[Rfam]
RNA sequence: UGCUCAUCAAGAGAGGUGGAGGGACUGGCCCGAUGAAACCCGGCAACCUCACGGAAGGUGCCAAGUCCUGCGGGAAGUCUCUUCCUGACAGAUGAGGU
Numbered sequence: 001u002g003c004u005c006a007u008c009a010a011g012a013g014a015g016g017u018g019g020a021g022g023g024a025c026u027g028g029c030c031c032g033a034u035g036a037a038a039c040c041c042g043g044c045a046a047c048c049u050c051a052c053g054g055a056a057g058g059u060g061c062c063a064a065g066u067c068c069u070g071c072g073g074g075a076a077g078u079c080u081c082u083u084c085c086u087g088a089c090a091g092a093u094g095a096g097g098u
Base pairs, nucleotide, nucleotide: 003096004095005094006093007092008091013041015040016039017038021031022030023029025070027068028067042062043061044060045059047058048057049054066090071087072086073085074084075083076082
RNA: SAM riboswitch aptamer (S box leader)
Organism: Desulforamulus profundi